[Rfam]
RNA sequence: AUUCCUCAUCCUUACUCCAGGGUUAUUGUUGCUUGUACAUUCCCUGGCAUUAAUUGAGGAUAAAGUAAUUGCUCUGAUUUGCCUUUGGAAAUCAGUUUUCCUUAAGGCUUACUUAAGUGCAAACACU
Number, nucleotide and partner (000 for none) at each position: 001a000002u000003u060004c059005c058006u057007c056008a055009u000010c000011c000012u000013u000014a000015c000016u000017c047018c046019a045020g044021g043022g042023u000024u000025a041026u000027u039028g038029u037030u000031g000032c000033u000034u000035g000036u000037a029038c028039a027040u000041u025042c022043c021044c020045u019046g018047g017048c000049a000050u000051u000052a000053a000054u000055u008056g007057a006058g005059g004060a003061u000062a000063a000064a000065g000066u000067a000068a000069u000070u121071g120072c119073u000074c117075u116076g000077a000078u000079u000080u000081g000082c107083c106084u105085u104086u000087g000088g101089a000090a099091a000092u000093c000094a000095g000096u000097u000098u000099u090100c000101c088102u000103u000104a085105a084106g083107g082108c000109u000110u000111a000112c000113u000114u000115a000116a075117g074118u000119g072120c071121a070122a000123a000124c000125a000126c000127u000
Small nucleolar RNA SNORA49: a 127-nucleotide RNA sequence from Xenopus laevis.
It scores 56 bits against the family's covariance model.
By type it is an H/ACA-box small nucleolar RNA.
The organism belongs to Xenopus, within Eukaryota.
The snoRNA ACA49 has no identified RNA target.